[Rfam]
RNA sequence: UGUCUCUUCAAUUCCGUAGUGCAUUGCAGUGUUUGAAGUAGCAGUCUGCAAGCAGUGCGGAAGUGAGGAGACGCC
Numbered sequence: 001u002g003u004c005u006c007u008u009c010a011a012u013u014c015c016g017u018a019g020u021g022c023a024u025u026g027c028a029g030u031g032u033u034u035g036a037a038g039u040a041g042c043a044g045u046c047u048g049c050a051a052g053c054a055g056u057g058c059g060g061a062a063g064u065g066a067g068g069a070g071a072c073g074c075c
Base pairs, nucleotide, nucleotide: 006068007067008066009065010064013061014060015059016058017057020054021053022052024051025050026049027048028047
RNA: mir-932 microRNA precursor family
Organism: Ignelater luminosus